[Rfam]
RNA sequence: UUGAAGGGUUAUAUCGAAGAAUCAAAUGAAAGGGUAACGCCUUGAAGGGUUCUCUCUUAGUCGAGUAGCAUUGGAUUUAGUAAGAAUGACACUGUUAUAAGCUCGGUGAAAAGGCGUGAGAAAUUAAAGUACCAGUUCGGCUGACGAAAGCCUACUCGAUGGAGUGGUGUAAUUCAUGAUGCUUGAGUUGAAUGA
Numbered sequence: 001u002u003g004a005a006g007g008g009u010u011a012u013a014u015c016g017a018a019g020a021a022u023c024a025a026a027u028g029a030a031a032g033g034g035u036a037a038c039g040c041c042u043u044g045a046a047g048g049g050u051u052c053u054c055u056c057u058u059a060g061u062c063g064a065g066u067a068g069c070a071u072u073g074g075a076u077u078u079a080g081u082a083a084g085a086a087u088g089a090c091a092c093u094g095u096u097a098u099a100a101g102c103u104c105g106g107u108g109a110a111a112a113g114g115c116g117u118g119a120g121a122a123a124u125u126a127a128a129g130u131a132c133c134a135g136u137u138c139g140g141c142u143g144a145c146g147a148a149a150g151c152c153u154a155c156u157c158g159a160u161g162g163a164g165u166g167g168u169g170u171a172a173u174u175c176a177u178g179a180u181g182c183u184u185g186a187g188u189u190g191a192a193u194g195a
Stems, first nucleotide, its partner, number of pairs: 018053006031043004054187003061106004065098006072091002077086002113183005122174005129145002134142002150168003154165004
Rfam assigns this 195-nucleotide sequence to the family "Group II catalytic intron D1-D4-5". The family has 139 seed sequences and 720 matches in Rfam 15.1. Pairs were carried over by alignment from the consensus structure. A search with the family's covariance model found it, with a score of 102 bits. Its family is annotated with Group II intron splicing in the Gene Ontology. The literature on the family includes a 2001 paper in Trends Genet by Bonen and Vogel, "The ins and outs of group II introns". Group II introns are found in rRNA, tRNA and mRNA of organelles in fungi, plants and protists, and also in mRNA in bacteria.